[Rfam]
RNA sequence: UGUGCCCCAGCUCGUGUUGCAGGCGUGGCUGCAGUGUCGCGUUUGUGUCAUUCGGUGGCAGAGAGGACAAGGCGAGGUCUUCCCCUGGUGCUCUGACCCACGUGGGCUCCCAGGAUUUCUCAACAACAUG
Numbered sequence: 001u002g003u004g005c006c007c008c009a010g011c012u013c014g015u016g017u018u019g020c021a022g023g024c025g026u027g028g029c030u031g032c033a034g035u036g037u038c039g040c041g042u043u044u045g046u047g048u049c050a051u052u053c054g055g056u057g058g059c060a061g062a063g064a065g066g067a068c069a070a071g072g073c074g075a076g077g078u079c080u081u082c083c084c085c086u087g088g089u090g091c092u093c094u095g096a097c098c099c100a101c102g103u104g105g106g107c108u109c110c111c112a113g114g115a116u117u118u119c120u121c122a123a124c125a126a127c128a129u130g
Stems, first nucleotide, its partner, number of pairs: 003060004007055002010052001014048002019046004024041006071124001074121003081115003087111002090107004
The family of this 130-nucleotide sequence from Formicarius rufipectus is "Small nucleolar RNA SNORA17". Rfam's curators write: snoRNA ACA 17 belongs to the H/ACA family of snoRNAs and is predicted to guide pseudouridylation of the 28S rRNA at positions U4659 and U4598. It shares the same host gene together with ACA43. NB This family has a high threshold value to exclude a large number of closely related sequences that do not appear to have conserved H and ACA boxes, and may be pseudogenes. Rfam links the family to the GO terms nucleolus and RNA processing. For this family Rfam cites "Mapping to nucleotide resolution of pseudouridine residues in large subunit ribosomal RNAs from representative eukaryotes, prokaryotes, archaebacteria, mitochondria and chloroplasts" (Ofengand and Bakin, J Mol Biol, 1997). Pairs were carried over by alignment from the consensus structure, which was predicted with RNAalifold. Rfam classes the family as an H/ACA-box small nucleolar RNA. NCBI's taxonomy places the organism under Eukaryota, Amniota, Sauropsida, Neognathae, Formicarius.